[Rfam]
RNA: Small Cajal body specific RNA 16
RNA sequence: AUGGUCCAGGGGAAGGAUCCUGUGCUCCUGAACCUGCCCGGCGGGUGCAGCCUUGGACCAGGCAGCCCAACCCUGACCUAAGUAAAAAUUUUCCUGGGCUCUGAAUGUGCGAUCAUAGGUGUGACCAUUCUGGCUGCAGUUUGAUGAUCACUUAUGAUAUUGCAAAUAGGA
Numbered sequence: 001a002u003g004g005u006c007c008a009g010g011g012g013a014a015g016g017a018u019c020c021u022g023u024g025c026u027c028c029u030g031a032a033c034c035u036g037c038c039c040g041g042c043g044g045g046u047g048c049a050g051c052c053u054u055g056g057a058c059c060a061g062g063c064a065g066c067c068c069a070a071c072c073c074u075g076a077c078c079u080a081a082g083u084a085a086a087a088a089u090u091u092u093c094c095u096g097g098g099c100u101c102u103g104a105a106u107g108u109g110c111g112a113u114c115a116u117a118g119g120u121g122u123g124a125c126c127a128u129u130c131u132g133g134c135u136g137c138a139g140u141u142u143g144a145u146g147a148u149c150a151c152u153u154a155u156g157a158u159a160u161u162g163c164a165a166a167u168a169g170g171a
Stems, first nucleotide, its partner, number of pairs: 003078004009072002015067002018064001019062004024058001028050003032046003090098003106166001108164006116156002122150003126146004132141003